[Rfam]
RNA sequence: GCGGGGGUGCCCGAGCCAGGUCAAAGGGGCAGGGCUCAAGACCCUGUGGCGUAGGCCUGCGUGGGUUCGAAUCCCACCCCCCGCA
Numbered sequence: 001g002c003g004g005g006g007g008u009g010c011c012c013g014a015g016c017c018a019g020g021u022c023a024a025a026g027g028g029g030c031a032g033g034g035c036u037c038a039a040g041a042c043c044c045u046g047u048g049g050c051g052u053a054g055g056c057c058u059g060c061g062u063g064g065g066u067u068c069g070a071a072u073c074c075c076a077c078c079c080c081c082c083g084c085a
Stems, first nucleotide, its partner, number of pairs: 001084007010028003030046005061077005
RNA: tRNA
Organism: Thermoproteus tenax